[Rfam]
RNA sequence: UCUCAUAUAGUAACGAACUGUACAUGCACUGUUGGCGGGCAGUCAUGUUCAACAUUCUCGCUCUGCCCUUAGCAGACCGCCAC
Number, nucleotide and partner (000 for none) at each position: 001u000002c000003u000004c000005a000006u000007a000008u000009a000010g000011u000012a000013a000014c000015g000016a000017a000018c000019u000020g000021u000022a000023c047024a046025u045026g044027c000028a043029c042030u041031g040032u039033u000034g081035g080036c079037g078038g077039g032040c031041a030042g029043u028044c026045a025046u024047g023048u000049u000050c000051a000052a000053c000054a000055u000056u000057c000058u000059c000060g000061c000062u000063c075064u074065g073066c072067c000068c000069u000070u000071a000072g066073c065074a064075g063076a000077c038078c037079g036080c035081c034082a000083c000

Shown here is an 83-nucleotide RNA sequence from Paulinella micropora, a member of the family "Cyanobacterial ribosomal protein S1 leader". Pairs were carried over by alignment from the consensus structure, which is taken from published work. The source organism's lineage runs through Eukaryota, Rhizaria, Cercozoa, Euglyphida and Paulinella. Rfam's curators write: cyano-S1 is a ncRNA recognized in the 5-prime region of genes encoding 30S ribosomal protein S1, it has been proposed as an cis regulation element. It scores 40 bits against the family's covariance model. Rfam classes the family as a cis-regulatory leader.